The family of this 81-nucleotide sequence from Desulfuromonas soudanensis is "c-di-GMP-I-GGC riboswitch aptamer". The source organism's lineage runs through Bacteria, Pseudomonadati, Desulfuromonadia, Desulfuromonadales and Desulfuromonas. Its family is annotated with cyclic-di-GMP binding in the Gene Ontology. A reference for the family is Weinberg et al. (2017), "Bioinformatic analysis of riboswitch structures uncovers variant classes with altered ligand specificity", Proc Natl Acad Sci U S A.
RNA sequence: CCCGAAAACGCCAAACCUGCCGUGAGGCCGGGACGGAAAGCGACGGAUCUCCGAAGGGAGAAGAUGGCCGAGCUGCCGAAG
Numbered sequence: 001c002c003c004g005a006a007a008a009c010g011c012c013a014a015a016c017c018u019g020c021c022g023u024g025a026g027g028c029c030g031g032g033a034c035g036g037a038a039a040g041c042g043a044c045g046g047a048u049c050u051c052c053g054a055a056g057g058g059a060g061a062a063g064a065u066g067g068c069c070g071a072g073c074u075g076c077c078g079a080a081g
Stems, first nucleotide, its partner, number of pairs: 001081001003078002011036002016031002019028003034067001039074003044070003047065003